The family of this 121-nucleotide sequence from Prodigiosinella confusarubida is "Histidine operon leader". For this family Rfam cites "Attenuation in amino acid biosynthetic operons" (Kolter and Yanofsky, Annu Rev Genet, 1982). Its family is annotated with histidine biosynthetic process in the Gene Ontology. Rfam describes the family as follows. At least 6 amino acid operons are known to be regulated by attenuation. In each a leader sequence of 150-200 bp is found upstream of the first gene in the operon. This leader sequence can assume two different secondary structures known as the terminator and the anti-terminator structure. In each case the leader also codes for very short peptide sequence that is rich in the end product amino acid of the operon. The organism belongs to Prodigiosinella, within Bacteria.
[Rfam]
RNA sequence: CCAUCAUCACCAUCAUCCUGACUAGUCUUUCAGGCGAUUGGUGCUGGAAGACACGCGGAUCUUCCAGUGGUGCAGAACGUAAAGAGAGCCCUCGGAAGAUCACUUCCGAGGGUUUUUUUAU
Numbered sequence: 001c002c003a004u005c006a007u008c009a010c011c012a013u014c015a016u017c018c019u020g021a022c023u024a025g026u027c028u029u030u031c032a033g034g035c036g037a038u039u040g041g042u043g044c045u046g047g048a049a050g051a052c053a054c055g056c057g058g059a060u061c062u063u064c065c066a067g068u069g070g071u072g073c074a075g076a077a078c079g080u081a082a083a084g085a086g087a088g089c090c091c092u093c094g095g096a097a098g099a100u101c102a103c104u105u106c107c108g109a110g111g112g113u114u115u116u117u118u119u120a121u
Stems, first nucleotide, its partner, number of pairs: 008043003012038003017034005044067008083118016